[Rfam]
RNA sequence: GGAUGCUCGCCGCCUAAUUGUCUAAUAAGGACAAACCGGGGACCCAUCGAGCCGGACUCGGCUUCGGGGUGAAUCCGCGGAAUCGCGGUAGGGCGUUCUUCGGCCCGAACCCGGCAGCUAACUCGGUAGGCGGAAGACGAAGAAAGA
Dot-bracket structure: ..........((((...(((((.......)))))((((((....(....................)(((.....((((......))))..((((........))))...))).........)))))).))))...............
RNA: c-di-AMP riboswitch aptamer (ydaO/yuaA leader)
Organism: Stackebrandtia endophytica